[Rfam]
RNA sequence: UCCACUGUGAGGUGAAGUCCGAAGAAAGGCGUAGGCAAAUCUCUGCUCUGACAGACAAUAAUCACAUCAGGCGGCCUGAGAGAGAUAAGCCAGCAUAACAGGACAAAGUCCAAUAACUGCUCGGGAUCUCAGGCGGUAAAUGCGGCAGAUAUAUAGAGUGAAAUAGUACGUU
Numbered sequence: 001u002c003c004a005c006u007g008u009g010a011g012g013u014g015a016a017g018u019c020c021g022a023a024g025a026a027a028g029g030c031g032u033a034g035g036c037a038a039a040u041c042u043c044u045g046c047u048c049u050g051a052c053a054g055a056c057a058a059u060a061a062u063c064a065c066a067u068c069a070g071g072c073g074g075c076c077u078g079a080g081a082g083a084g085a086u087a088a089g090c091c092a093g094c095a096u097a098a099c100a101g102g103a104c105a106a107a108g109u110c111c112a113a114u115a116a117c118u119g120c121u122c123g124g125g126a127u128c129u130c131a132g133g134c135g136g137u138a139a140a141u142g143c144g145g146c147a148g149a150u151a152u153a154u155a156g157a158g159u160g161a162a163a164u165a166g167u168a169c170g171u172u
Stems, first nucleotide, its partner, number of pairs: 001016001003014004028172005041158005047149004062145002065142002071137002075133007084110003089104001091102001
The family of this 172-nucleotide sequence from Synergistes jonesii is "Group II catalytic intron D1-D4-3". Group II introns are found in rRNA, tRNA and mRNA of organelles in fungi, plants and protists, and also in mRNA in bacteria. The base pairs follow the family's consensus structure. The match comes from Rfam's covariance-model search (102 bits).